[Rfam]
RNA sequence: AAGCAAAUAGGGAAUGGAACUUCCCUGUCAUAAACCGCUAAUAAUAGCUGAUAGUUCCUACGAUAUC
Numbered sequence: 001a002a003g004c005a006a007a008u009a010g011g012g013a014a015u016g017g018a019a020c021u022u023c024c025c026u027g028u029c030a031u032a033a034a035c036c037g038c039u040a041a042u043a044a045u046a047g048c049u050g051a052u053a054g055u056u057c058c059u060a061c062g063a064u065a066u067c
Base pairs, nucleotide, nucleotide: 010025011024012023013022016058017057018056019055020054021053037048038047039046040045

The record is a 67-nucleotide sequence from Bacteroides coprosuis, which matches "Fluoride riboswitch aptamer (crcB RNA motif)" in Rfam. Pairs were carried over by alignment from the consensus structure, which is taken from published work. The source organism's lineage runs through Bacteria, Pseudomonadati, Bacteroidaceae, Bacteroides and Bacteroides coprosuis. A search with the family's covariance model found it, with a score of 50 bits.